[Rfam]
This 91-nucleotide RNA from Dactylorhiza majalis belongs to the Rfam family "Plastid-rps12 3UTR RNA". The sequence is in the family's curated seed alignment. From the family's description: Plastid rpl20 is a non-coding RNA (ncRNA) recognised in plastids. It was found in the three prime untranslated region (3UTR) of rps12 gene, its 3UTR location sugest a role in transcript maduration. For this family Rfam cites "Retrograde signaling in plants: A critical review focusing on the GUN pathway and beyond" (Richter et al., Plant Commun, 2023). It is annotated as a cis-regulatory element. NCBI's taxonomy places the organism under Eukaryota, Streptophytina, Liliopsida, Orchidaceae, Dactylorhiza.

RNA sequence: GGUUUCUAUUGGUGUAAAUCCAAUCACUCCGUUUGAGAUGAGAAGAAAUUUUCCAUUGGUAGCAAAAGUUAUCCAUUAAGCGGAGGAAAUA
Number, nucleotide and partner (000 for none) at each position: 001g000002g000003u000004u000005u000006c000007u000008a000009u023010u022011g021012g020013u000014g000015u000016a000017a000018a000019u000020c012021c011022a010023a009024u000025c000026a000027c000028u000029c000030c000031g000032u000033u000034u000035g000036a000037g000038a000039u000040g000041a000042g000043a000044a000045g000046a000047a000048a000049u000050u000051u085052u084053c083054c082055a076056u075057u000058g073059g072060u071061a070062g069063c068064a000065a000066a000067a000068g063069u062070u061071a060072u059073c058074c000075a056076u055077u000078a000079a000080g000081c000082g054083g053084a052085g051086g000087a000088a000089a000090u000091a000